RNA: mir-156 microRNA precursor family
Organism: Trema andersonii
RNA sequence: UUGACAGAAGAGAGUGAGCACACAGAGGGCUUUGGCAUAAGAGUAUGCUAUUGCUUUUGCGUGCUCACUUCUCUAUCUGUCAG
Numbered sequence: 001u002u003g004a005c006a007g008a009a010g011a012g013a014g015u016g017a018g019c020a021c022a023c024a025g026a027g028g029g030c031u032u033u034g035g036c037a038u039a040a041g042a043g044u045a046u047g048c049u050a051u052u053g054c055u056u057u058u059g060c061g062u063g064c065u066c067a068c069u070u071c072u073c074u075a076u077c078u079g080u081c082a083g
Base pairs, nucleotide, nucleotide: 001083002082003081004080005079006078007077008076010073011072012071013069014068015067016066017065018064019063020062021061023059024058025057